[Rfam]
Fluoride riboswitch aptamer (crcB RNA motif): a 67-nucleotide RNA sequence from Candidimonas nitroreducens. The literature on the family includes a 2012 paper in Science by Baker et al., "Widespread genetic switches and toxicity resistance proteins for fluoride".
RNA sequence: GGCCGCAAAGGAGAUGGCAUUCCUCCUGUAAACCGCCACCAUACCGGCUAAUGAUGCCUACCUGUUC
Numbered sequence: 001g002g003c004c005g006c007a008a009a010g011g012a013g014a015u016g017g018c019a020u021u022c023c024u025c026c027u028g029u030a031a032a033c034c035g036c037c038a039c040c041a042u043a044c045c046g047g048c049u050a051a052u053g054a055u056g057c058c059u060a061c062c063u064g065u066u067c
Base pairs, nucleotide, nucleotide: 010026011025012024013023016058017057018056019055020054021053035048036047037046
Background: Lineage of the source: Bacteria > Pseudomonadota > Betaproteobacteria > Alcaligenaceae > Candidimonas. The family's consensus secondary structure is taken from published work.